RNA sequence: UAAGCUUGAACUGCCAGUGGUCUUGUGAUCCGUUGAGAAAUUUUGGAUCGAAUCACAGCCAACUGGUGGCUCAGCUUGC
Numbered sequence: 001u002a003a004g005c006u007u008g009a010a011c012u013g014c015c016a017g018u019g020g021u022c023u024u025g026u027g028a029u030c031c032g033u034u035g036a037g038a039a040a041u042u043u044u045g046g047a048u049c050g051a052a053u054c055a056c057a058g059c060c061a062a063c064u065g066g067u068g069g070c071u072c073a074g075c076u077u078g079c
Stems, first nucleotide, its partner, number of pairs: 003077002006074003011069002014066005020060001022058002025056005031050002033047002

The record is a 79-nucleotide sequence from Brugia malayi, which matches "mir-250 microRNA precursor family" in Rfam. Rfam 15.1 lists 22 matches to the family in 21 species. NCBI's taxonomy places the organism under Eukaryota, Ecdysozoa, Rhabditida, Onchocercidae, Brugia. The base pairs follow the family's consensus structure, which was predicted with RNAalifold.